RNA sequence: GACUUCCACACAAGACUUUCUCUCGGGAGUCGCGGCUG
Numbered sequence: 001g002a003c004u005u006c007c008a009c010a011c012a013a014g015a016c017u018u019u020c021u022c023u024c025g026g027g028a029g030u031c032g033c034g035g036c037u038g
Stems, first nucleotide, its partner, number of pairs: 001031007
Shown here is a 38-nucleotide RNA, a member of the family "S4-Bacteroidia ribosomal protein leader". By type it is a cis-regulatory leader. The family's consensus secondary structure is taken from published work. The sequence is in the family's curated seed alignment. A reference for the family is Eckert and Weinberg (2020), "Discovery of 20 novel ribosomal leader candidates in bacteria and archaea", BMC Microbiol. Clan: Ribosomal Protein S4 Leader clan.